[Rfam]
RNA sequence: GGUAUUCCUUAUCUGUCUAAUGGUUUGUAUGGAGCCUGUCUUCCUGUACUCCAAAGCCGAAAUACACGAAGACAGGCUCGUCAGUUUAGUUGCCGCAAAAGUACUUAAU
Numbered sequence: 001g002g003u004a005u006u007c008c009u010u011a012u013c014u015g016u017c018u019a020a021u022g023g024u025u026u027g028u029a030u031g032g033a034g035c036c037u038g039u040c041u042u043c044c045u046g047u048a049c050u051c052c053a054a055a056g057c058c059g060a061a062a063u064a065c066a067c068g069a070a071g072a073c074a075g076g077c078u079c080g081u082c083a084g085u086u087u088a089g090u091u092g093c094c095g096c097a098a099a100a101g102u103a104c105u106u107a108a109u
Stems, first nucleotide, its partner, number of pairs: 001094004020085001021083003032079009043068001045066003050061001052059001
The record is a 109-nucleotide RNA from Gibbsiella quercinecans, which matches "tp2" in Rfam.